A member of the RNA family "Vault RNA" from Carlito syrichta, 94 nucleotides long. Lineage of the source: Eukaryota > Teleostomi > Euteleostomi > Boreoeutheria > Carlito. The literature on the family includes a 2009 paper in Mol Biol Evol by Stadler et al., "Evolution of Vault RNAs".
[Rfam]
RNA sequence: GGGCUGGUUUUAGCUCAGCGGUUCCUUCGACAGAGCUUCUGCUAACUGCCCUUCAGGGGUGGUUAGAGACCCGCGGGCACUCUCCAGCCCUUUU
Numbered sequence: 001g002g003g004c005u006g007g008u009u010u011u012a013g014c015u016c017a018g019c020g021g022u023u024c025c026u027u028c029g030a031c032a033g034a035g036c037u038u039c040u041g042c043u044a045a046c047u048g049c050c051c052u053u054c055a056g057g058g059g060u061g062g063u064u065a066g067a068g069a070c071c072c073g074c075g076g077g078c079a080c081u082c083u084c085c086a087g088c089c090c091u092u093u094u
Stems, first nucleotide, its partner, number of pairs: 002089006013078004018074004026068003030064001